[Rfam]
RNA sequence: ACUUUUUUCUUGCUUUACUUAAAAGCAAGUGGUGCGGAUGGGGUAACUCCCGCCCUGUUUCUUGCUUCAGGUAAAAGAGUAAGUGGCGAGCCUGCAA
Numbered sequence: 001a002c003u004u005u006u007u008u009c010u011u012g013c014u015u016u017a018c019u020u021a022a023a024a025g026c027a028a029g030u031g032g033u034g035c036g037g038a039u040g041g042g043g044u045a046a047c048u049c050c051c052g053c054c055c056u057g058u059u060u061c062u063u064g065c066u067u068c069a070g071g072u073a074a075a076a077g078a079g080u081a082a083g084u085g086g087c088g089a090g091c092c093u094g095c096a097a
Stems, first nucleotide, its partner, number of pairs: 009029006016023001039052005054071004061083006
Dot-bracket structure: ........((((((.(......))))))).........(((((....))))).[[[[...((((((.]]]]......))))))..............
Rfam assigns this 97-nucleotide RNA sequence to the family "wcaG RNA". Rfam's curators put it in the seed alignment.